A member of the RNA family "glmS glucosamine-6-phosphate activated ribozyme aptamer" from Paenibacillus hemerocallicola, 193 nucleotides long. The source organism's lineage runs through Bacteria, Bacillati, Bacillota, Paenibacillaceae and Paenibacillus. This entry contains a glucosamine-6-phosphate activated ribozyme that is found in the mRNA for GlmS. GlmS is an enzyme that uses fructose-6-phosphate and glutamine to generate glucosamine-6-phosphate. The ribozyme catalyses self cleavage of the glmS mRNA that is thought to regulate GlmS activity. A search with the family's covariance model found it, with a score of 72 bits.
[Rfam]
RNA sequence: UACGUAAGCGAAGCGCCUGCGCUUGCUGCGGCCGCCGGAUCGGAUAAGGGCGUGCCGGACCAACUAUAGCGAGCGGACGAGGUAGAGGUGUUCGGAACAGUCGGCGGGGACCUCUCGGCAAUGGCAUCUGGCCGAAAGCGGAAAGGCAAAAGGUUCGGGCAACCGGACUGACAAGAUUUCCGCGAGAUGCGUA
Numbered sequence: 001u002a003c004g005u006a007a008g009c010g011a012a013g014c015g016c017c018u019g020c021g022c023u024u025g026c027u028g029c030g031g032c033c034g035c036c037g038g039a040u041c042g043g044a045u046a047a048g049g050g051c052g053u054g055c056c057g058g059a060c061c062a063a064c065u066a067u068a069g070c071g072a073g074c075g076g077a078c079g080a081g082g083u084a085g086a087g088g089u090g091u092u093c094g095g096a097a098c099a100g101u102c103g104g105c106g107g108g109g110a111c112c113u114c115u116c117g118g119c120a121a122u123g124g125c126a127u128c129u130g131g132c133c134g135a136a137a138g139c140g141g142a143a144a145g146g147c148a149a150a151a152g153g154u155u156c157g158g159g160c161a162a163c164c165g166g167a168c169u170g171a172c173a174a175g176a177u178u179u180c181c182g183c184g185a186g187a188u189g190c191g192u193a
Base pairs, nucleotide, nucleotide: 020075021074022073023072024071025070026069027068084115085114086113087112088111092104093103094102095101116134117133118132119131121129138183139182140181141180142179143178144177152169153168154167155166156165157164158163